[Rfam]
RNA sequence: UCAGGUAGCUAGAUAGUUGCUGUAAAUAUAGUUUUUUACAGAGGAAAGUCUGGGCUUCAUGGAAUAAUAGAGCUGGAUAACUCCCAGCAAAGGUAACUUUAGGGAAAGUGCCGCAGAAAAUAUACCGCCUGUUAAAUUGGUAAGGGUGAAAUGGUAAGGUAAGAGCUUACCGAUCUUUUAGUAAUAAAAGAUGCAUGGUAAACCCCUCUAGAAGCAAGAUCAAGUAGUGUUUUUUUUAACUUUAUUCCAAGUUUUAAACACGGGUAGAUUGCUAGAGUUUAAUGGUAACAUUAAAUCGAGAUGAAUAACCAUCAGAUACAUUAUAGUAUCUACAGAACCCAGCUUAUAGGCUGCCUGUUGUU
Numbered sequence: 001u002c003a004g005g006u007a008g009c010u011a012g013a014u015a016g017u018u019g020c021u022g023u024a025a026a027u028a029u030a031g032u033u034u035u036u037u038a039c040a041g042a043g044g045a046a047a048g049u050c051u052g053g054g055c056u057u058c059a060u061g062g063a064a065u066a067a068u069a070g071a072g073c074u075g076g077a078u079a080a081c082u083c084c085c086a087g088c089a090a091a092g093g094u095a096a097c098u099u100u101a102g103g104g105a106a107a108g109u110g111c112c113g114c115a116g117a118a119a120a121u122a123u124a125c126c127g128c129c130u131g132u133u134a135a136a137u138u139g140g141u142a143a144g145g146g147u148g149a150a151a152u153g154g155u156a157a158g159g160u161a162a163g164a165g166c167u168u169a170c171c172g173a174u175c176u177u178u179u180a181g182u183a184a185u186a187a188a189a190g191a192u193g194c195a196u197g198g199u200a201a202a203c204c205c206c207u208c209u210a211g212a213a214g215c216a217a218g219a220u221c222a223a224g225u226a227g228u229g230u231u232u233u234u235u236u237u238a239a240c241u242u243u244a245u246u247c248c249a250a251g252u253u254u255u256a257a258a259c260a261c262g263g264g265u266a267g268a269u270u271g272c273u274a275g276a277g278u279u280u281a282a283u284g285g286u287a288a289c290a291u292u293a294a295a296u297c298g299a300g301a302u303g304a305a306u307a308a309c310c311a312u313c314a315g316a317u318a319c320a321u322u323a324u325a326g327u328a329u330c331u332a333c334a335g336a337a338c339c340c341a342g343c344u345u346a347u348a349g350g351c352u353g354c355c356u357g358u359u360g361u362u
Stems, first nucleotide, its partner, number of pairs: 002357009011347001012313003016309003020041007028033001046345003050342005055214004064246001068210005073087004088102001089100004103205002108203002110199003125145002127141003131137002153171006172194001173192008218270004227261006238253005277296008
RNA: Bacterial RNase P class A